[Rfam]
RNA sequence: AAUUAUAGUUUUGCAUCAUAGAAACUCAGUGAAGAUGGUUGACAACCUGCUGAGAGCUGAUGGUGCCGGGAGGAAUUUAUAAGGAUACUUUGAAAAUUCUAUUCCUUUUAUGAUUUGUGAAAAUCAUAAUGAAUGGUAAAAGCCAAAAGAAUAAGUCAGUUUGCCAAGCUUUAGUGUAUAUAAAGGUAAUAGACUUGUGGUGGCUGUAAUAGACGACUCAGUGAGGAAUAAUCCAACGGGGUAUAAGUGUGGUAACUUCUAUGACAUUGGAAAUACCAAACAAAGCCAUUUGUCUUGAAACAGAGAAAUCUGCGUAUAACACAAGCACUAUGUUAAAGUAGCCUUAUGACAAAAACUAUUAGAGGAUUUCUAUUUCUGAAAGUUAGGUGGAAUUUAUGAGUAAUCAUUCUCAUGUAGGACGUGAUACUUUGUAUUGGGGUAAGAAGUUUAGGGUAGCUCCCAACAACUCAGACUUAUCUCCCUAGUGACUGAAUAUAUAUGAAACUAUUGUAAGGUACAGUGAAAGCUGUCUAUGAUGUAUAACUAUA
Numbered sequence: 001a002a003u004u005a006u007a008g009u010u011u012u013g014c015a016u017c018a019u020a021g022a023a024a025c026u027c028a029g030u031g032a033a034g035a036u037g038g039u040u041g042a043c044a045a046c047c048u049g050c051u052g053a054g055a056g057c058u059g060a061u062g063g064u065g066c067c068g069g070g071a072g073g074a075a076u077u078u079a080u081a082a083g084g085a086u087a088c089u090u091u092g093a094a095a096a097u098u099c100u101a102u103u104c105c106u107u108u109u110a111u112g113a114u115u116u117g118u119g120a121a122a123a124u125c126a127u128a129a130u131g132a133a134u135g136g137u138a139a140a141a142g143c144c145a146a147a148a149g150a151a152u153a154a155g156u157c158a159g160u161u162u163g164c165c166a167a168g169c170u171u172u173a174g175u176g177u178a179u180a181u182a183a184a185g186g187u188a189a190u191a192g193a194c195u196u197g198u199g200g201u202g203g204c205u206g207u208a209a210u211a212g213a214c215g216a217c218u219c220a221g222u223g224a225g226g227a228a229u230a231a232u233c234c235a236a237c238g239g240g241g242u243a244u245a246a247g248u249g250u251g252g253u254a255a256c257u258u259c260u261a262u263g264a265c266a267u268u269g270g271a272a273a274u275a276c277c278a279a280a281c282a283a284a285g286c287c288a289u290u291u292g293u294c295u296u297g298a299a300a301c302a303g304a305g306a307a308a309u310c311u312g313c314g315u316a317u318a319a320c321a322c323a324a325g326c327a328c329u330a331u332g333u334u335a336a337a338g339u340a341g342c343c344u345u346a347u348g349a350c351a352a353a354a355a356c357u358a359u360u361a362g363a364g365g366a367u368u369u370c371u372a373u374u375u376c377u378g379a380a381a382g383u384u385a386g387g388u389g390g391a392a393u394u395u396a397u398g399a400g401u402a403a404u405c406a407u408u409c410u411c412a413u414g415u416a417g418g419a420c421g422u423g424a425u426a427c428u429u430u431g432u433a434u435u436g437g438g439g440u441a442a443g444a445a446g447u448u449u450a451g452g453g454u455a456g457c458u459c460c461c462a463a464c465a466a467c468u469c470a471g472a473c474u475u476a477u478c479u480c481c482c483u484a485g486u487g488a489c490u491g492a493a494u495a496u497a498u499a500u501g502a503a504a505c506u507a508u509u510g511u512a513a514g515g516u517a518c519a520g521u522g523a524a525a526g527c528u529g530u531c532u533a534u535g536a537u538g539u540a541u542a543a544c545u546a547u548a
Base pairs, nucleotide, nucleotide: 007545008544009543010542012540013539014538015537016536017535018534019533020532021531022530025054026053027052028051029050037047038046039045056160057159058158059157060156061155068105069104070103071100072099073098076095077094078093081090082089083088106131108129109128110127111126112125113124114123115122116121134145135144136143137142168511169510172507173506174505175504185496186490189331190330191329192328194325195324196323197322198321199320200289201288202287203286204285205284217225218224219223232271233270234269235268236267242261243260245258246257247256248255250278251277252276253275290352291351292350293349294348301312302311303310304309335393341388342387343386344385346383375472376471377470378469400410415484416483417482418434425433426432436481437480438479439478442475443474446468448465449463451461452460453459518529519528520527521526
RNA: ROOL RNA